[Rfam]
Annotation: The family of this 77-nucleotide RNA sequence from Bombyx mori is "mir-745 microRNA precursor family".
RNA sequence: UAGUUGGUUGCGGCUCAUCGUGUGGCAGUUUGCUAGGUUAGAAUGCCAGCUGCCUAGCGAAGGGCAACGAACAACUG
Numbered sequence: 001u002a003g004u005u006g007g008u009u010g011c012g013g014c015u016c017a018u019c020g021u022g023u024g025g026c027a028g029u030u031u032g033c034u035a036g037g038u039u040a041g042a043a044u045g046c047c048a049g050c051u052g053c054c055u056a057g058c059g060a061a062g063g064g065c066a067a068c069g070a071a072c073a074a075c076u077g
Base pairs, nucleotide, nucleotide: 003075004074005073006072008070009069010068013065014064015063016062018060019059020058021057024054025053026052027051032050033049034048

The organism belongs to Bombyx, within Eukaryota.